[Rfam]
RNA sequence: GCGCAGGCUAGACCAGUGGUUACUUCGAACCGCAGAUUCAACUAAUCCACUGCCGCGGUCCUGCGCUUUU
Numbered sequence: 001g002c003g004c005a006g007g008c009u010a011g012a013c014c015a016g017u018g019g020u021u022a023c024u025u026c027g028a029a030c031c032g033c034a035g036a037u038u039c040a041a042c043u044a045a046u047c048c049a050c051u052g053c054c055g056c057g058g059u060c061c062u063g064c065g066c067u068u069u070u
Base pairs, nucleotide, nucleotide: 002065003064004063005062006061007060011054013052016050017049018048019047025036026035
Shown here is a 70-nucleotide sequence from Nephila pilipes, a member of the family "Vault RNA". The base pairs follow the family's consensus structure, which is taken from published work. On this family, see Stadler et al., Mol Biol Evol 2009: "Evolution of Vault RNAs". It scores 34 bits against the family's covariance model.